The record is a 79-nucleotide RNA from Paenibacillus polymyxa, which matches "tRNA" in Rfam. The source organism's lineage runs through Bacteria, Bacillota, Bacilli, Paenibacillus and Paenibacillus polymyxa. The family's RNA type in Rfam is transfer RNA.

RNA sequence: GCCGGCGUGGCGGAAUGGCAGACGCGCUCGACUCAAAAUCGAGUGGGAAACCGUGGAGGUUCGAGUCCUCUCGCCGGUA
Numbered sequence: 001g002c003c004g005g006c007g008u009g010g011c012g013g014a015a016u017g018g019c020a021g022a023c024g025c026g027c028u029c030g031a032c033u034c035a036a037a038a039u040c041g042a043g044u045g046g047g048a049a050a051c052c053g054u055g056g057a058g059g060u061u062c063g064a065g066u067c068c069u070c071u072c073g074c075c076g077g078u079a
Stems, first nucleotide, its partner, number of pairs: 001078007010025003027043005055071005